[Rfam]
RNA sequence: AGCGUCCAACUGCCUGGACCGCACCGUGGGAACCGGGGAACCACCCCUUCUCGUCAGCCGGACGAGGAGGAUGGGGUGAAUCGGACGCCCUUGCGUGAGGACGCCCGUAGGAGACCUUCCUGCUCCGAACCCGUCAGCUAACCCGGUAGGCGAGAAGGAAGGAAAGG
Numbered sequence: 001a002g003c004g005u006c007c008a009a010c011u012g013c014c015u016g017g018a019c020c021g022c023a024c025c026g027u028g029g030g031a032a033c034c035g036g037g038g039a040a041c042c043a044c045c046c047c048u049u050c051u052c053g054u055c056a057g058c059c060g061g062a063c064g065a066g067g068a069g070g071a072u073g074g075g076g077u078g079a080a081u082c083g084g085a086c087g088c089c090c091u092u093g094c095g096u097g098a099g100g101a102c103g104c105c106c107g108u109a110g111g112a113g114a115c116c117u118u119c120c121u122g123c124u125c126c127g128a129a130c131c132c133g134u135c136a137g138c139u140a141a142c143c144c145g146g147u148a149g150g151c152g153a154g155a156a157g158g159a160a161g162g163a164a165a166g167g
Stems, first nucleotide, its partner, number of pairs: 011152004019030002032147006042073002074132003082107003110126004
RNA: c-di-AMP riboswitch aptamer (ydaO/yuaA leader)